[Rfam]
RNA sequence: UUGCUUUAAACUAAUGAGUAAGGAAAACAAAGCGAGUGGUGAGAGCCACUUGCAGCGCUCAACCUCAAAAGUGCGCAAGAAUUUAUGGAGGGUUAUAGGCUGGCCGAGUGUAGACGCUGUGCUUACUUUGCACAGAACUCGCUUGAGCGGGCCUCCC
Numbered sequence: 001u002u003g004c005u006u007u008a009a010a011c012u013a014a015u016g017a018g019u020a021a022g023g024a025a026a027a028c029a030a031a032g033c034g035a036g037u038g039g040u041g042a043g044a045g046c047c048a049c050u051u052g053c054a055g056c057g058c059u060c061a062a063c064c065u066c067a068a069a070a071g072u073g074c075g076c077a078a079g080a081a082u083u084u085a086u087g088g089a090g091g092g093u094u095a096u097a098g099g100c101u102g103g104c105c106g107a108g109u110g111u112a113g114a115c116g117c118u119g120u121g122c123u124u125a126c127u128u129u130g131c132a133c134a135g136a137a138c139u140c141g142c143u144u145g146a147g148c149g150g151g152c153c154u155c156c157c
Base pairs, nucleotide, nucleotide: 004023005022006021007020008019032053033052034051035050036049037048038047039046055076056075057074058073092157097154098153099152100151101150103148106142108140110138111137118134119133120132121131122130